[Rfam]
RNA sequence: AGGAGGAACAACCACAGAGCCGGCAGCCAGCUCUGGACCCCUGGAUUCAGCUCCCAUAGUAACUACGAAGCUCUCCAUCUGCAGGGGUCUGGAUGCUCUGGGGCGGG
Numbered sequence: 001a002g003g004a005g006g007a008a009c010a011a012c013c014a015c016a017g018a019g020c021c022g023g024c025a026g027c028c029a030g031c032u033c034u035g036g037a038c039c040c041c042u043g044g045a046u047u048c049a050g051c052u053c054c055c056a057u058a059g060u061a062a063c064u065a066c067g068a069a070g071c072u073c074u075c076c077a078u079c080u081g082c083a084g085g086g087g088u089c090u091g092g093a094u095g096c097u098c099u100g101g102g103g104c105g106g107g
Base pairs, nucleotide, nucleotide: 002099003098004097005096007094009091010090012086013085019079022076023075025074026073029072030071031070032069034067035066037064041059042058043057
A member of the RNA family "mir-8834 microRNA precursor family" from Canis lupus, 107 nucleotides long. Rfam links the family to the GO terms RISC complex and miRNA-mediated post-transcriptional gene silencing. The family has 2 seed sequences and 13,926 matches in Rfam 15.1. Lineage of the source: Eukaryota > Gnathostomata > Tetrapoda > Boreoeutheria > Canis lupus.